[Rfam]
RNA sequence: GUCAUCAAAUGACGAUAAAUCAAUUUAAUCUUAGGACACCAUUGGACACAACUUUUCGUUGUGGGUGAGAAUACCAUUUUUCUGAUGAUGAC
Numbered sequence: 001g002u003c004a005u006c007a008a009a010u011g012a013c014g015a016u017a018a019a020u021c022a023a024u025u026u027a028a029u030c031u032u033a034g035g036a037c038a039c040c041a042u043u044g045g046a047c048a049c050a051a052c053u054u055u056u057c058g059u060u061g062u063g064g065g066u067g068a069g070a071a072u073a074c075c076a077u078u079u080u081u082c083u084g085a086u087g088a089u090g091a092c
Base pairs, nucleotide, nucleotide: 001092002091003090004089005088006087007086045049
RNA: Small nucleolar RNA snoR31/Z110/Z27
Organism: Lactuca saligna